[Rfam]
RNA sequence: AAACGUCUGGGGUGUGCGUUGGCAGAUAUUGAUGUCUAACCGACUUUUACCUUCAGGGAACCUGAUUUGAACCAUGUGGCUGAUGUAGCGUUUAGGACGAUGAUCAAAGACACGGCUUAGGGUACCCACCUGCACAUGCAGGUUUAGGCAGAUAUUGCCGACGGCAUUUUGGACCCCAU
Numbered sequence: 001a002a003a004c005g006u007c008u009g010g011g012g013u014g015u016g017c018g019u020u021g022g023c024a025g026a027u028a029u030u031g032a033u034g035u036c037u038a039a040c041c042g043a044c045u046u047u048u049a050c051c052u053u054c055a056g057g058g059a060a061c062c063u064g065a066u067u068u069g070a071a072c073c074a075u076g077u078g079g080c081u082g083a084u085g086u087a088g089c090g091u092u093u094a095g096g097a098c099g100a101u102g103a104u105c106a107a108a109g110a111c112a113c114g115g116c117u118u119a120g121g122g123u124a125c126c127c128a129c130c131u132g133c134a135c136a137u138g139c140a141g142g143u144u145u146a147g148g149c150a151g152a153u154a155u156u157g158c159c160g161a162c163g164g165c166a167u168u169u170u171g172g173a174c175c176c177c178a179u
Stems, first nucleotide, its partner, number of pairs: 005174011017163003033150007040142002056127003060123004065118001072115002075112003083104002089099003
About this RNA:
This 179-nucleotide RNA from Schwartzia succinivorans belongs to the Rfam family "6S / SsrS RNA". The source organism's lineage runs through Bacteria, Bacillati, Bacillota, Selenomonadaceae and Schwartzia succinivorans. The family's RNA type in Rfam is non-coding RNA gene.